[Rfam]
Notes:
Bacterial RNase P class A: a 372-nucleotide RNA from Thalassotalea mangrovi. The family's RNA type in Rfam is ribozyme. Rfam describes the family as follows. Ribonuclease P (RNase P) is a ubiquitous endoribonuclease, found in archaea, bacteria and eukarya as well as chloroplasts and mitochondria. Its best characterised activity is the generation of mature 5'-ends of tRNAs by cleaving the 5'-leader elements of precursor-tRNAs. Cellular RNase Ps are ribonucleoproteins. RNA from bacterial RNase Ps retains its catalytic activity in the absence of the protein subunit, i.e. it is a ribozyme. Isolated eukaryotic and archaeal RNase P RNA has not been shown to retain its catalytic function, but is still essential for the catalytic activity of the holoenzyme. Although the archaeal and eukaryotic holoenzyme s have a much greater protein content than the bacterial ones, the RNA cores from all the three lineages are homologous -- helices corresponding to P1, P2, P3, P4, and P10/11 are common to all cellular RNase P RNAs. Yet, there is considerable sequence variation, particularly among the eukaryotic RNAs. Identified in Yersinia as Ysr151/RnpB. NCBI's taxonomy places the organism under Bacteria, Pseudomonadota, Gammaproteobacteria, Colwelliaceae, Thalassotalea.
RNA sequence: CGAGUUGACCAGACAAUCGCUGCUGCUUAGCCUAGGUUAAGCAGGGGAGGAAAGUCCGGGCUCCACAGAGCAGGGUGCCAGAUAACGUCUGGGGGGCGCAAGCCUACGACAAGUGCAGCAGAGAGAAGACCGCCUAAGCACCGAUUAGGUGCCGGUAAGGGUGAAAGGGUGCGGUAAGAGCGCACCGGGCCGCUGGUAACAGUUGGCAGCAGGGUAAACUCCACCCGGAGCAAGACCAAAUAGGGUUCCUUAUGGCGUGGCUCGCGUUGGAACCGGGUAGGUUGCUUGAGCCCUGGAGCGAUCCAGGGCCUAGACGAAUGAUUGUCGCUCUUUUUAAGAGAACAGAACCCGGCUUAUCGGUCAACUCAACUC
Numbered sequence: 001c002g003a004g005u006u007g008a009c010c011a012g013a014c015a016a017u018c019g020c021u022g023c024u025g026c027u028u029a030g031c032c033u034a035g036g037u038u039a040a041g042c043a044g045g046g047g048a049g050g051a052a053a054g055u056c057c058g059g060g061c062u063c064c065a066c067a068g069a070g071c072a073g074g075g076u077g078c079c080a081g082a083u084a085a086c087g088u089c090u091g092g093g094g095g096g097c098g099c100a101a102g103c104c105u106a107c108g109a110c111a112a113g114u115g116c117a118g119c120a121g122a123g124a125g126a127a128g129a130c131c132g133c134c135u136a137a138g139c140a141c142c143g144a145u146u147a148g149g150u151g152c153c154g155g156u157a158a159g160g161g162u163g164a165a166a167g168g169g170u171g172c173g174g175u176a177a178g179a180g181c182g183c184a185c186c187g188g189g190c191c192g193c194u195g196g197u198a199a200c201a202g203u204u205g206g207c208a209g210c211a212g213g214g215u216a217a218a219c220u221c222c223a224c225c226c227g228g229a230g231c232a233a234g235a236c237c238a239a240a241u242a243g244g245g246u247u248c249c250u251u252a253u254g255g256c257g258u259g260g261c262u263c264g265c266g267u268u269g270g271a272a273c274c275g276g277g278u279a280g281g282u283u284g285c286u287u288g289a290g291c292c293c294u295g296g297a298g299c300g301a302u303c304c305a306g307g308g309c310c311u312a313g314a315c316g317a318a319u320g321a322u323u324g325u326c327g328c329u330c331u332u333u334u335u336a337a338g339a340g341a342a343c344a345g346a347a348c349c350c351g352g353c354u355u356a357u358c359g360g361u362c363a364a365c366u367c368a369a370c371u372c
Stems, first nucleotide, its partner, number of pairs: 002367009011357001012326007020047002023044008052355003056352005061230004068263004073226005078092005093107001094105004108221002113219002115215002130160002132156003138152005168186006187210001189207004193202003234283004244274006254268005290309008